[Rfam]
The record is a 71-nucleotide RNA sequence from Microcebus murinus, which matches "Small nucleolar RNA SNORD102" in Rfam.
NCBI's taxonomy places the organism under Eukaryota, Opisthokonta, Vertebrata, Eutheria, Microcebus.
On this family, see Vitali et al., Nucleic Acids Res 2003: "Identification of 13 novel human modification guide RNAs".
Rfam 15.1 lists 443 matches to the family in 430 species.
The sequence is in the family's curated seed alignment.
RNA sequence: AGCUUAAUGAUGAUUAUCUUUUUGAUUGCUCGAAGCAAAGUGAAAAACACAUUUCACCGGCUCUGAAAGCU
Numbered sequence: 001a002g003c004u005u006a007a008u009g010a011u012g013a014u015u016a017u018c019u020u021u022u023u024g025a026u027u028g029c030u031c032g033a034a035g036c037a038a039a040g041u042g043a044a045a046a047a048c049a050c051a052u053u054u055c056a057c058c059g060g061c062u063c064u065g066a067a068a069g070c071u
Stems, first nucleotide, its partner, number of pairs: 001071005